[Rfam]
A member of the RNA family "Small nucleolar RNA ACA64" from Megalops atlanticus, 126 nucleotides long. Pairs were carried over by alignment from the consensus structure, which was predicted with WAR. Rfam classes the family as an H/ACA-box small nucleolar RNA. A reference for the family is Schattner et al. (2006), "A computational screen for mammalian pseudouridylation guide H/ACA RNAs", RNA. Rfam 15.1 lists 9,537 matches to the family in 620 species.
RNA sequence: GCAGUCUGAAAAUUACCCCUGAUGUGUCAGUUGUCCAGGGUAAGAUAACUGUGCCUACAGGAAAGUGGUGUAUAAAGCUUAUUGUCUGCUUUAUAGCAGUGCAAUGAAACCCAUGCACCCACAGUU
Numbered sequence: 001g002c003a004g005u006c007u008g009a010a011a012a013u014u015a016c017c018c019c020u021g022a023u024g025u026g027u028c029a030g031u032u033g034u035c036c037a038g039g040g041u042a043a044g045a046u047a048a049c050u051g052u053g054c055c056u057a058c059a060g061g062a063a064a065g066u067g068g069u070g071u072a073u074a075a076a077g078c079u080u081a082u083u084g085u086c087u088g089c090u091u092u093a094u095a096g097c098a099g100u101g102c103a104a105u106g107a108a109a110c111c112c113a114u115g116c117a118c119c120c121a122c123a124g125u126u
Base pairs, nucleotide, nucleotide: 006051008049010046013043014042015041016040021035022034023033024032067119069117070116071115072114073113079107080106081105082104083103087098088097089096